A member of the RNA family "mir-8517 microRNA precursor family" from Plutella xylostella, 100 nucleotides long. The organism belongs to Plutella, within Eukaryota. The match comes from Rfam's covariance-model search (78 bits). The family's consensus secondary structure was predicted with RNAalifold.

[Rfam]
RNA sequence: UUAUAGGACGCUUUAGCUUUUGAAUAGUUUUGUCCCUCUGUCAAAGAACAAAUUGUUCUGAGAGUGACAAAACAGUUCAAAAGCUAAAGCGUCCUAUAAC
Number, nucleotide and partner (000 for none) at each position: 001u099002u098003a097004u096005a095006g094007g000008a000009c000010g000011c089012u088013u087014u086015a085016g084017c083018u082019u081020u080021u079022g078023a077024a076025u075026a000027g073028u072029u061030u000031u000032g000033u000034c000035c000036c000037u000038c000039u000040g000041u000042c000043a000044a000045a000046g000047a057048a056049c055050a054051a000052a000053u000054u050055g049056u048057u047058c000059u000060g000061a029062g000063a000064g000065u000066g000067a000068c000069a000070a000071a000072a028073c027074a000075g025076u024077u023078c022079a021080a020081a019082a018083g017084c016085u015086a014087a013088a012089g011090c000091g000092u000093c000094c006095u005096a004097u003098a002099a001100c000